Shown here is a 52-nucleotide RNA sequence from Tobacco virus 2, a member of the family "Exoribonuclease-resistant RNA (xrRNA) plant-infecting virus (class 3)".
It is one of the family's seed sequences.
NCBI's taxonomy places the organism under Viruses, Pisuviricota, Pisoniviricetes, Sobelivirales, Polerovirus.
From the family's description: Exoribonuclease-resistant RNA (xrRNA) plant-infecting virus (class 3) is a ncRNA that was reported in Plant viruses.
[Rfam]
RNA sequence: AAGCUAGCCAAGCAUACACGAGUUGCAAGCAUUGGAAGUUCAAGCCUCGUUA
Number, nucleotide and partner (000 for none) at each position: 001a040002a039003g000004c000005u000006a000007g000008c035009c034010a000011a033012g030013c029014a000015u000016a000017c000018a050019c049020g048021a047022g046023u000024u000025g000026c000027a000028a000029g013030c012031a000032u000033u011034g009035g008036a000037a000038g000039u002040u001041c000042a000043a000044g000045c000046c022047u021048c020049g019050u018051u000052a000